Notes
The family of this 153-nucleotide RNA sequence from Virgibacillus phasianinus is "FMN riboswitch aptamer (RFN element)". A search with the family's covariance model found it, with a score of 113 bits.
[Rfam]
RNA sequence: AAAUUUCUUCGGGGUCGGGUGAAAUUCCCAAUCGGCGGUGUUGAAGCAUAGUACUUCUUAGUCCGUGACCCGUGCGGUUAUUCAUGUAACCAAACGGUGGAUCUGGUGUGAUUCCAGAGCCGACAGUUAUAGUCUGGAUGGGAGAAGAAAUUU
Numbered sequence: 001a002a003a004u005u006u007c008u009u010c011g012g013g014g015u016c017g018g019g020u021g022a023a024a025u026u027c028c029c030a031a032u033c034g035g036c037g038g039u040g041u042u043g044a045a046g047c048a049u050a051g052u053a054c055u056u057c058u059u060a061g062u063c064c065g066u067g068a069c070c071c072g073u074g075c076g077g078u079u080a081u082u083c084a085u086g087u088a089a090c091c092a093a094a095c096g097g098u099g100g101a102u103c104u105g106g107u108g109u110g111a112u113u114c115c116a117g118a119g120c121c122g123a124c125a126g127u128u129a130u131a132g133u134c135u136g137g138a139u140g141g142g143a144g145a146a147g148a149a150a151u152u153u
Stems, first nucleotide, its partner, number of pairs: 003151008017029003031133002033122002035066004061120002070097004102118005124136003
The organism belongs to Virgibacillus, within Bacteria. The RFN element is a highly conserved domain that is found frequently in the 5'-untranslated regions of prokaryotic mRNAs that encode for flavin mononucleotide (FMN) biosynthesis and transport proteins.